[Rfam]
RNA: Bacterial RNase P class A
Organism: Herbidospora galbida
RNA sequence: CGAGCCGGCCGGACGGCCGCGUCGGAACUCCUGUCACGGGGGUUCCGCCGAGGAAGGUCCGGGCUCCACAGGGCAGGGUGGUCGGUAACGCCGACCCGGGGUGACCCGCGGGACAGUGCCACAGAGAACAGACCGCCUUUCCCUUACGGGGGAGGUAAGGGUGAAACGGUGGUGUAAGAGACCACCAGCGCCCCCGGUGACGGGGGCGGCUAGGUAAACCCCACCCGGAGCAAGGUCAAGAAGGGGACUUUCGGGUUCCCGCGCGCGCCGCUUGAGGACUGCCCGUCCGAUGGUGCGCGGGUAGACCGCUUGAGACCACGAGCAAUCGUGGCCCUAGAUGGAUGGCCGUCGGUCAGCGAUGACCACAGAACCCGGCCUAUAGGCCGACUCGUCCG
Numbered sequence: 001c002g003a004g005c006c007g008g009c010c011g012g013a014c015g016g017c018c019g020c021g022u023c024g025g026a027a028c029u030c031c032u033g034u035c036a037c038g039g040g041g042g043u044u045c046c047g048c049c050g051a052g053g054a055a056g057g058u059c060c061g062g063g064c065u066c067c068a069c070a071g072g073g074c075a076g077g078g079u080g081g082u083c084g085g086u087a088a089c090g091c092c093g094a095c096c097c098g099g100g101g102u103g104a105c106c107c108g109c110g111g112g113a114c115a116g117u118g119c120c121a122c123a124g125a126g127a128a129c130a131g132a133c134c135g136c137c138u139u140u141c142c143c144u145u146a147c148g149g150g151g152g153a154g155g156u157a158a159g160g161g162u163g164a165a166a167c168g169g170u171g172g173u174g175u176a177a178g179a180g181a182c183c184a185c186c187a188g189c190g191c192c193c194c195c196g197g198u199g200a201c202g203g204g205g206g207c208g209g210c211u212a213g214g215u216a217a218a219c220c221c222c223a224c225c226c227g228g229a230g231c232a233a234g235g236u237c238a239a240g241a242a243g244g245g246g247a248c249u250u251u252c253g254g255g256u257u258c259c260c261g262c263g264c265g266c267g268c269c270g271c272u273u274g275a276g277g278a279c280u281g282c283c284c285g286u287c288c289g290a291u292g293g294u295g296c297g298c299g300g301g302u303a304g305a306c307c308g309c310u311u312g313a314g315a316c317c318a319c320g321a322g323c324a325a326u327c328g329u330g331g332c333c334c335u336a337g338a339u340g341g342a343u344g345g346c347c348g349u350c351g352g353u354c355a356g357c358g359a360u361g362a363c364c365a366c367a368g369a370a371c372c373c374g375g376c377c378u379a380u381a382g383g384c385c386g387a388c389u390c391g392u393c394c395g
Stems, first nucleotide, its partner, number of pairs: 001391004006386005011380001012350007020050002023047009055378003059375005064230004071284004076226005081095005096110001097108004111221002116219002118215003133160002135156009168186006188210001189208008234307004244298001246296001249293001276288004314333001316331006